Record summary: A member of the RNA family "Molybdenum/Tungsten riboswitch aptamer (Moco RNA motif)" from Photobacterium gaetbulicola, 143 nucleotides long.
RNA sequence: ACAAUUGCCAUGCUCCGAGCUUUUUUCACUAAGUUCCCGGCUAAAGGGGAUAAGUGAUUCAAGCCAGUGACAAGUUGUCACCAGGGUCGAUAAAGAAAUGCAUCGGCCUCCCGUACUUGGAAAGGUGUUCCGUGGCGAAACAA
Numbered sequence: 001a002c003a004a005u006u007g008c009c010a011u012g013c014u015c016c017g018a019g020c021u022u023u024u025u026u027c028a029c030u031a032a033g034u035u036c037c038c039g040g041c042u043a044a045a046g047g048g049g050a051u052a053a054g055u056g057a058u059u060c061a062a063g064c065c066a067g068u069g070a071c072a073a074g075u076u077g078u079c080a081c082c083a084g085g086g087u088c089g090a091u092a093a094a095g096a097a098a099u100g101c102a103u104c105g106g107c108c109u110c111c112c113g114u115a116c117u118u119g120g121a122a123a124g125g126u127g128u129u130c131c132g133u134g135g136c137g138a139a140a141c142a143a
Stems, first nucleotide, its partner, number of pairs: 006134001012128002015125002019064004026057004033051006067081005084109008094099001110120002
Dot-bracket structure: .....(.....((.((..((((...((((...((((((.......))))))..))))...))))..(((((.....)))))..((((((((..(....)..))))))))((.......))...)).)).....).........